[Rfam]
RNA: Small nucleolar RNA SNORA26
Organism: Cervus elaphus
RNA sequence: CUUCUCUUUUAAAAAAUGAGAGCCUUAAGAGGCUAACACAGGAGGGUAAAGGAAGUCUCCAUAAAACCCAGAGAAGAGAUUUUUAGAACUCCUCUCUGGAUCCUGUCUGGAGUCACAACU
Dot-bracket structure: .(.(((((((...(...................).....))))))).)......(.(((((......(((((((.(((.((.....))))).)))))))........))))).)......